A member of the RNA family "MIR397 microRNA precursor family" from Chenopodium quinoa, 125 nucleotides long. The match comes from Rfam's covariance-model search (58 bits).
RNA sequence: GCCAAAAACAUAAUUGAAUGCAGCGUCGAUGAAAAUCAACUCGAAAUUAAGUAAGAUUAACUUGAAAUCAAGUAAGAUCGACUCGAAAUCGAAUUUCAUCAAUGCUGCACUCAAUGAUGUUUUCA
Numbered sequence: 001g002c003c004a005a006a007a008a009c010a011u012a013a014u015u016g017a018a019u020g021c022a023g024c025g026u027c028g029a030u031g032a033a034a035a036u037c038a039a040c041u042c043g044a045a046a047u048u049a050a051g052u053a054a055g056a057u058u059a060a061c062u063u064g065a066a067a068u069c070a071a072g073u074a075a076g077a078u079c080g081a082c083u084c085g086a087a088a089u090c091g092a093a094u095u096u097c098a099u100c101a102a103u104g105c106u107g108c109a110c111u112c113a114a115u116g117a118u119g120u121u122u123u124c125a
Stems, first nucleotide, its partner, number of pairs: 006122006013115005019109008028100001030098005
NCBI's taxonomy places the organism under Eukaryota, Viridiplantae, Caryophyllales, Chenopodioideae, Chenopodium.